[Rfam]
RNA sequence: CUCACUUUGUGUAAAUAACACACACGUAUCGGCACAUGCGCCGGGGUGCCCUUCGGGGUCGGUCGUAUGGGAUACGUGGAGGCAUAAC
Numbered sequence: 001c002u003c004a005c006u007u008u009g010u011g012u013a014a015a016u017a018a019c020a021c022a023c024a025c026g027u028a029u030c031g032g033c034a035c036a037u038g039c040g041c042c043g044g045g046g047u048g049c050c051c052u053u054c055g056g057g058g059u060c061g062g063u064c065g066u067a068u069g070g071g072a073u074a075c076g077u078g079g080a081g082g083c084a085u086a087a088c
Stems, first nucleotide, its partner, number of pairs: 023078008035069005040063004048059004

Rfam assigns this 88-nucleotide RNA from Pluralibacter gergoviae to the family "t44 RNA". It scores 87 bits against the family's covariance model. From the family's description: This family consists of a number of bacterial RNA genes of between 135 and 170 bases in length. The t44 gene has been identified in several species of enteric bacteria but homologs have also been identified in Pseudomonas and Coxiella species. The t44 gene is found between the map and rpsB genes in all species in the full alignment apart from Shigella flexneri. The function of this RNA is unknown. By type it is a small RNA. The base pairs follow the family's consensus structure, which was predicted with LocARNA.